RNA sequence: CGACCACAGACGCUUUCGGCAGGAGCGGGGGAACCAGGUAAGUCGCCGGUCCGGAUUCGUUUCCGGAACGGCUUGGGGUGAAGCCGCCGAACAUGGCGGCCGGGCAGCUCCAGCCCGAACCCGACAGCUCACCUCGCAGGCGCCGGAGAGGAAUUCG
Numbered sequence: 001c002g003a004c005c006a007c008a009g010a011c012g013c014u015u016u017c018g019g020c021a022g023g024a025g026c027g028g029g030g031g032a033a034c035c036a037g038g039u040a041a042g043u044c045g046c047c048g049g050u051c052c053g054g055a056u057u058c059g060u061u062u063c064c065g066g067a068a069c070g071g072c073u074u075g076g077g078g079u080g081a082a083g084c085c086g087c088c089g090a091a092c093a094u095g096g097c098g099g100c101c102g103g104g105c106a107g108c109u110c111c112a113g114c115c116c117g118a119a120c121c122c123g124a125c126a127g128c129u130c131a132c133c134u135c136g137c138a139g140g141c142g143c144c145g146g147a148g149a150g151g152a153a154u155u156c157g
Stems, first nucleotide, its partner, number of pairs: 007022001025137006035075005076122003084099004102116004
Record summary:
A member of the RNA family "c-di-AMP riboswitch aptamer (ydaO/yuaA leader)" from Streptomyces coryli, 157 nucleotides long. The match comes from Rfam's covariance-model search (73 bits).